[Rfam]
Source information:
Rfam assigns this 274-nucleotide RNA from Archaeoglobus profundus to the family "HgcG RNA (Pab40)". Pairs were carried over by alignment from the consensus structure, which was predicted with PFOLD. The source organism's lineage runs through Archaea, Methanobacteriati, Methanobacteriota, Archaeoglobi and Archaeoglobus profundus. A reference for the family is Klein et al. (2002), "Noncoding RNA genes identified in AT-rich hyperthermophiles", Proc Natl Acad Sci U S A. About the family: The HgcG ncRNA gene was identified computationally in AT-rich hyperthermophiles. The genes were named hgcA through hgcG ('high GC'). Rfam's curators put it in the seed alignment.

RNA sequence: AUUACAAAAGGCUGAUCGAGAAAAUUUAAUAGUUAGAGAGACAUACUAUAUAUUGCCCCAGGCGGGAUGAAGGGGCUGAGUGGGCGCAUGCCCUCAAUGAAGCCACUUGCGAACUUGGGGCGACAGGCGGUGUCGAGACGUCCCCUUCGGAGAGAGUAUACGCUUUCGAUGAUGUAGGGGCAACCCCGACACCGCACAACCCCGAUGGGUCAGCGGUCUUGAGCGGGCAUUUGCCUUCGAUGAGAGACCGUGUUAGCGUUCGGGGAACAUCUCA
Numbered sequence: 001a002u003u004a005c006a007a008a009a010g011g012c013u014g015a016u017c018g019a020g021a022a023a024a025u026u027u028a029a030u031a032g033u034u035a036g037a038g039a040g041a042c043a044u045a046c047u048a049u050a051u052a053u054u055g056c057c058c059c060a061g062g063c064g065g066g067a068u069g070a071a072g073g074g075g076c077u078g079a080g081u082g083g084g085c086g087c088a089u090g091c092c093c094u095c096a097a098u099g100a101a102g103c104c105a106c107u108u109g110c111g112a113a114c115u116u117g118g119g120g121c122g123a124c125a126g127g128c129g130g131u132g133u134c135g136a137g138a139c140g141u142c143c144c145c146u147u148c149g150g151a152g153a154g155a156g157u158a159u160a161c162g163c164u165u166u167c168g169a170u171g172a173u174g175u176a177g178g179g180g181c182a183a184c185c186c187c188g189a190c191a192c193c194g195c196a197c198a199a200c201c202c203c204g205a206u207g208g209g210u211c212a213g214c215g216g217u218c219u220u221g222a223g224c225g226g227g228c229a230u231u232u233g234c235c236u237u238c239g240a241u242g243a244g245a246g247a248c249c250g251u252g253u254u255a256g257c258g259u260u261c262g263g264g265g266a267a268c269a270u271c272u273c274a
Stems, first nucleotide, its partner, number of pairs: 055121008071107002074104004127195008137147002140144001164174001200265006206258002214250007226235002